[Rfam]
RNA sequence: CUGAAGACAAGCCAAACCCGUCGCGAGGCGGGGACGGAAAGCCACGGGUCUUCGCCCUUUGCGGGCGGCGGAAGGCGAUUGUGCCGCAAGCCGGACACCGGAGGGAGGCGAAGACAGCCGGGUUGCCAGA
Numbered sequence: 001c002u003g004a005a006g007a008c009a010a011g012c013c014a015a016a017c018c019c020g021u022c023g024c025g026a027g028g029c030g031g032g033g034a035c036g037g038a039a040a041g042c043c044a045c046g047g048g049u050c051u052u053c054g055c056c057c058u059u060u061g062c063g064g065g066c067g068g069c070g071g072a073a074g075g076c077g078a079u080u081g082u083g084c085c086g087c088a089a090g091c092c093g094g095a096c097a098c099c100g101g102a103g104g105g106a107g108g109c110g111a112a113g114a115c116a117g118c119c120g121g122g123u124u125g126c127c128a129g130a
Stems, first nucleotide, its partner, number of pairs: 012037002017032006040124004045120003048115003056108005
Shown here is a 130-nucleotide RNA sequence from Pseudodesulfovibrio alkaliphilus, a member of the family "c-di-GMP-I riboswitch aptamer". GEMM was predicted in a large-scale screen for bacterial structured RNA regulatory elements. The match comes from Rfam's covariance-model search (60 bits).